[Rfam]
Shown here is a 179-nucleotide sequence from Alloprevotella sp. OH1205_COT-284, a member of the family "Bacteroidales-1 6S-Bacteroidales RNA suggested". Bacteroidales-1 was first reported in a comparative genomics-based approach of genome and metagenome sequences from Weinberg et al. 2010 In a high-resolution transcriptome map study of Bacteroides thetaiotaomicron, Ryan et al. 2020 report this sRNA as 6S RNA homologue of Bacteroides, in the study they obtain evidence of small product RNAs (pRNAs) related to 6S function.
RNA sequence: GGCUGUGCUGGUUAGAUUGGGAUACUCAUCAAUUUUUUCAGAAUCACCGAGAAGGCUCUUCAUCCAAUGGCGUGCCGAUACUGCAUUUUAUCGUGUGGAAGUCGGAUUACAGAGGGUGUGUGGGCGCUCAAAUCCUUACUACUCGGAGUUUCAUCAUCGUCACCGGCACAGCCCUUUUU
Numbered sequence: 001g002g003c004u005g006u007g008c009u010g011g012u013u014a015g016a017u018u019g020g021g022a023u024a025c026u027c028a029u030c031a032a033u034u035u036u037u038u039c040a041g042a043a044u045c046a047c048c049g050a051g052a053a054g055g056c057u058c059u060u061c062a063u064c065c066a067a068u069g070g071c072g073u074g075c076c077g078a079u080a081c082u083g084c085a086u087u088u089u090a091u092c093g094u095g096u097g098g099a100a101g102u103c104g105g106a107u108u109a110c111a112g113a114g115g116g117u118g119u120g121u122g123g124g125c126g127c128u129c130a131a132a133u134c135c136u137u138a139c140u141a142c143u144c145g146g147a148g149u150u151u152c153a154u155c156a157u158c159g160u161c162a163c164c165g166g167c168a169c170a171g172c173c174c175u176u177u178u179u
Base pairs, nucleotide, nucleotide: 055125056124057123058122059120061118062117063116064115065114068111069110075105076104077103078102080087091099092098

Pairs were carried over by alignment from the consensus structure, which is taken from published work. A reference for the family is Ryan et al. (2020), "A high-resolution transcriptome map identifies small RNA regulation of metabolism in the gut microbe Bacteroides thetaiotaomicron", Nat Commun. By type it is a small RNA.